[Rfam]
RNA sequence: ACGUGCUCCGGGGUCGGUGAAACUCCGAACCGGCGGUUACAGUCCGCGACCCAGCGGCCCUCGGGCCCCUGGCUGACCCGGUGGAAGUCCGGGACCGACGGUCAAAGUCCGGAUGGGAGGAAGCACGG
Numbered sequence: 001a002c003g004u005g006c007u008c009c010g011g012g013g014u015c016g017g018u019g020a021a022a023c024u025c026c027g028a029a030c031c032g033g034c035g036g037u038u039a040c041a042g043u044c045c046g047c048g049a050c051c052c053a054g055c056g057g058c059c060c061u062c063g064g065g066c067c068c069c070u071g072g073c074u075g076a077c078c079c080g081g082u083g084g085a086a087g088u089c090c091g092g093g094a095c096c097g098a099c100g101g102u103c104a105a106a107g108u109c110c111g112g113a114u115g116g117g118a119g120g121a122a123g124c125a126c127g128g
Stems, first nucleotide, its partner, number of pairs: 003126004007120002015027003029108002031097002033047004042095002051072002077093005099111003
The record is a 128-nucleotide RNA sequence from Propioniciclava sinopodophylli, which matches "FMN riboswitch aptamer (RFN element)" in Rfam. Gene Ontology term of the family: FMN binding. NCBI's taxonomy places the organism under Bacteria, Bacillati, Actinomycetota, Actinomycetes, Propioniciclava.